This 52-nucleotide RNA sequence from Rousettus aegyptiacus belongs to the Rfam family "mir-1302 microRNA precursor family". Rfam links the family to the GO terms miRNA-mediated post-transcriptional gene silencing and RISC complex. A search with the family's covariance model found it, with a score of 63 bits. The family's consensus secondary structure was predicted with WAR. Lineage of the source: Eukaryota > Chordata > Chiroptera > Pteropodidae > Rousettus.
RNA sequence: UUUUUAGCGUAAGUAUAUUCCAUGCAAUAUUUGGGAGAUACUUAUACUCAAA
Numbered sequence: 001u002u003u004u005u006a007g008c009g010u011a012a013g014u015a016u017a018u019u020c021c022a023u024g025c026a027a028u029a030u031u032u033g034g035g036a037g038a039u040a041c042u043u044a045u046a047c048u049c050a051a052a
Stems, first nucleotide, its partner, number of pairs: 006048002009045004014040003018036004022031001
Dot-bracket structure: .....((.((((.(((.(((((........).)))).))).)))).))....